Rfam assigns this 94-nucleotide sequence from a Dehalococcoidia bacterium to the family "DUF3800-VII RNA". The family's consensus secondary structure is taken from published work. NCBI's taxonomy places the organism under Bacteria, Bacillati, Chloroflexota, Dehalococcoidia.
[Rfam]
RNA sequence: GACGGGCAUCUUCUGGAUCAGGUAGGUCGGUUCUGGUAACUGGCAGCGCCGUUUGGGGCGUGGGCUCCUACCCCCGGGACGUGCCCUUUCUUUA
Numbered sequence: 001g002a003c004g005g006g007c008a009u010c011u012u013c014u015g016g017a018u019c020a021g022g023u024a025g026g027u028c029g030g031u032u033c034u035g036g037u038a039a040c041u042g043g044c045a046g047c048g049c050c051g052u053u054u055g056g057g058g059c060g061u062g063g064g065c066u067c068c069u070a071c072c073c074c075c076g077g078g079a080c081g082u083g084c085c086c087u088u089u090c091u092u093u094a
Stems, first nucleotide, its partner, number of pairs: 001089002004086004011078001013077004021072005026044007047060004